RNA sequence: CUGUGUUCUGUGACUGAUUCGGCUGGCGCCGGACUGGCGGGAGCCCGACGGUCUGUCACGGACCACGAGA
Numbered sequence: 001c002u003g004u005g006u007u008c009u010g011u012g013a014c015u016g017a018u019u020c021g022g023c024u025g026g027c028g029c030c031g032g033a034c035u036g037g038c039g040g041g042a043g044c045c046c047g048a049c050g051g052u053c054u055g056u057c058a059c060g061g062a063c064c065a066c067g068a069g070a
Stems, first nucleotide, its partner, number of pairs: 002067004007062008016053003020050002025045003